[Rfam]
RNA sequence: UUCCAAGAUGGCACGCUAUCUUUGAGACCUGGUUGCCUUGUGACACGAUGAAAAUUACAAGCAUUGUUUUGGCUGAGAAU
Numbered sequence: 001u002u003c004c005a006a007g008a009u010g011g012c013a014c015g016c017u018a019u020c021u022u023u024g025a026g027a028c029c030u031g032g033u034u035g036c037c038u039u040g041u042g043a044c045a046c047g048a049u050g051a052a053a054a055u056u057a058c059a060a061g062c063a064u065u066g067u068u069u070u071g072g073c074u075g076a077g078a079a080u
Base pairs, nucleotide, nucleotide: 001079002078003077032046033043034042
The family of this 80-nucleotide RNA sequence from Corymbia citriodora is "Small nucleolar RNA R66". It scores 49 bits against the family's covariance model. About the family: snoR66 is a C/D box small nucleolar RNA, which acts as a methylation guide for 18S ribosomal RNA in plants. snoR66 has been alternatively named snoZ269 in rice. The source organism's lineage runs through Eukaryota, Spermatophyta, Mesangiospermae, Myrtaceae and Corymbia citriodora.